[Rfam]
RNA: Small nucleolar RNA U2-19
Organism: Carlito syrichta
RNA sequence: GAUCAGUGAUGAGAAUAGCCAAAUCUGAGCAUCAGAGAACUUUCCAUCUACCUGAUGCAUGAUCUCCACAGUUCUGAGA
Dot-bracket structure: ............................(((((..(((........)))....))))).....................